[Rfam]
RNA sequence: GCCUGUCGCAGCGGGAGAGACUGGCCCUGUGCCAGCGCCGAAGGAGCAACCGCCCUGGAAUCUCUCAGGCAGAAGGACCCUGCGACGGAA
Numbered sequence: 001g002c003c004u005g006u007c008g009c010a011g012c013g014g015g016a017g018a019g020a021c022u023g024g025c026c027c028u029g030u031g032c033c034a035g036c037g038c039c040g041a042a043g044g045a046g047c048a049a050c051c052g053c054c055c056u057g058g059a060a061u062c063u064c065u066c067a068g069g070c071a072g073a074a075g076g077a078c079c080c081u082g083c084g085a086c087g088g089a090a
Base pairs, nucleotide, nucleotide: 006085007084008083009082010081011080013079014078021035022034023033024032037070038069039068040066041065044064045063046062050057
RNA: Glycine riboswitch aptamer
Organism: Acetobacter estunensis